RNA sequence: GAGGAUACACUCGGUUCUUCUUCACGCCCCCACAGUUGGGGAUGCACCUUGGUUAGCUAAUUCAUAGAAUGGCUGGUCACUUCAAGGGUGUAUCGGAUUCUGUGGUGAGCCGCCCACGAAGUUGAACUAGAAAUUUAGCCCACUUUACGCAAGAAGGGCGGGCGGAGGCGCGUUUGAGCCCUGGGGACGGGGCGAGCGAGGGCACCCUUAAAGGAGUAUU
Number, nucleotide and partner (000 for none) at each position: 001g000002a000003g000004g000005a219006u218007a217008c216009a000010c000011u000012c000013g000014g000015u000016u000017c000018u000019u000020c000021u000022u000023c000024a000025c000026g203027c202028c201029c200030c105031c104032a103033c000034a101035g100036u000037u000038g000039g000040g000041g094042a093043u092044g000045c090046a089047c087048c086049u085050u079051g078052g077053u076054u072055a000056g000057c000058u000059a000060a070061u069062u068063c067064a000065u000066a000067g063068a062069a061070u060071g000072g054073c000074u000075g000076g053077u052078c051079a050080c000081u000082u000083c000084a000085a049086g048087g047088g000089u046090g045091u000092a043093u042094c041095g000096g000097a000098u000099u000100c035101u034102g000103u032104g031105g030106u000107g000108a000109g000110c165111c164112g163113c162114c161115c160116a000117c158118g000119a000120a000121g000122u000123u000124g000125a000126a000127c000128u000129a000130g000131a000132a000133a000134u000135u000136u000137a000138g000139c000140c000141c000142a000143c000144u000145u000146u000147a000148c000149g000150c000151a000152a000153g000154a000155a000156g000157g000158g117159c000160g115161g114162g113163c112164g111165g110166a000167g000168g000169c000170g000171c000172g000173u000174u000175u000176g000177a000178g193179c192180c191181c190182u189183g188184g000185g000186g000187a000188c183189g182190g181191g180192g179193c178194g000195a000196g000197c000198g000199a000200g029201g028202g027203c026204a000205c000206c000207c000208u000209u000210a000211a000212a000213g000214g000215a000216g008217u007218a006219u005220u000
RNA: lysM-Actino RNA